[Rfam]
RNA sequence: AUUUUUGGAUAAUCGCGUAGUAUUGUAAUACUAUGAGGAAAGUCCAUGCUAGCACUGGCUGUGAUGCCAGUAGUGUUUGUGCUAGGCGAAACAAUAAGCCUAGGGAUGUAAAAUACAUUACGGCAGGUAAAAUAGCUAAGUCUUUUGAUAUGCUAAAGUAACCUUGAAAGUGCCACAGUGACGAAGUUUUUAUGGAAACGUAAAAAAUGGAACGCGGUAAACCCCUCAAGCUAGCAACCCAAACUUUGGUCGGGGCAUGGGAUAGUUUGGAAACGAACGAACUAUCCUGACUGUUUAAUCAGUAGACAGAUGAUUAUCGAAGGAAAUAAUCCCUAGUUAUUUCUGGAACAAAACAUGGCUUAUAGAA
Numbered sequence: 001a002u003u004u005u006u007g008g009a010u011a012a013u014c015g016c017g018u019a020g021u022a023u024u025g026u027a028a029u030a031c032u033a034u035g036a037g038g039a040a041a042g043u044c045c046a047u048g049c050u051a052g053c054a055c056u057g058g059c060u061g062u063g064a065u066g067c068c069a070g071u072a073g074u075g076u077u078u079g080u081g082c083u084a085g086g087c088g089a090a091a092c093a094a095u096a097a098g099c100c101u102a103g104g105g106a107u108g109u110a111a112a113a114u115a116c117a118u119u120a121c122g123g124c125a126g127g128u129a130a131a132a133u134a135g136c137u138a139a140g141u142c143u144u145u146u147g148a149u150a151u152g153c154u155a156a157a158g159u160a161a162c163c164u165u166g167a168a169a170g171u172g173c174c175a176c177a178g179u180g181a182c183g184a185a186g187u188u189u190u191u192a193u194g195g196a197a198a199c200g201u202a203a204a205a206a207a208u209g210g211a212a213c214g215c216g217g218u219a220a221a222c223c224c225c226u227c228a229a230g231c232u233a234g235c236a237a238c239c240c241a242a243a244c245u246u247u248g249g250u251c252g253g254g255g256c257a258u259g260g261g262a263u264a265g266u267u268u269g270g271a272a273a274c275g276a277a278c279g280a281a282c283u284a285u286c287c288u289g290a291c292u293g294u295u296u297a298a299u300c301a302g303u304a305g306a307c308a309g310a311u312g313a314u315u316a317u318c319g320a321a322g323g324a325a326a327u328a329a330u331c332c333c334u335a336g337u338u339a340u341u342u343c344u345g346g347a348a349c350a351a352a353a354c355a356u357g358g359c360u361u362a363u364a365g366a367a
Stems, first nucleotide, its partner, number of pairs: 004367003007363001008318007016035006040361003044358005049234005054071006077229003081225001082103006104121001105119006122224002125164004133155004140149003170222002172218003187206008238254003258289007290303004322344009
This 367-nucleotide RNA from Streptococcus uberis belongs to the Rfam family "Bacterial RNase P class B". From the family's description: Ribonuclease P (RNase P) is a ubiquitous endoribonuclease, found in archaea, bacteria and eukarya as well as chloroplasts and mitochondria. Its best characterised activity is the generation of mature 5'-ends of tRNAs by cleaving the 5'-leader elements of precursor-tRNAs. Cellular RNase Ps are ribonucleoproteins. Clan: RNaseP clan. Rfam's curators put it in the seed alignment. Its family is annotated with dimeric ribonuclease P complex, tRNA processing and ribonuclease P activity in the Gene Ontology. The organism belongs to Streptococcus, within Bacteria.